This 116-nucleotide sequence from Lachnospira eligens belongs to the Rfam family "c-di-GMP-I riboswitch aptamer".
The family's consensus secondary structure is taken from published work.
The organism belongs to Lachnospira eligens, within Bacteria.
RNA sequence: ACAAAAGAGGGGUAAACCUGCAGAAAUGCAGGGACACAAAGCUACAAGUCUAAGUUGAUUCAGUAGUCUGGGGAGUAUUGGAUAUAUUGAAGAUAUAAGAUGGUUGAGUUGCAGAU
Numbered sequence: 001a002c003a004a005a006a007g008a009g010g011g012g013u014a015a016a017c018c019u020g021c022a023g024a025a026a027u028g029c030a031g032g033g034a035c036a037c038a039a040a041g042c043u044a045c046a047a048g049u050c051u052a053a054g055u056u057g058a059u060u061c062a063g064u065a066g067u068c069u070g071g072g073g074a075g076u077a078u079u080g081g082a083u084a085u086a087u088u089g090a091a092g093a094u095a096u097a098a099g100a101u102g103g104u105u106g107a108g109u110u111g112c113a114g115a116u
Base pairs, nucleotide, nucleotide: 012037013036017032018031019030020029021028022027040110041109042108043107045106046105047104048101049100050099055095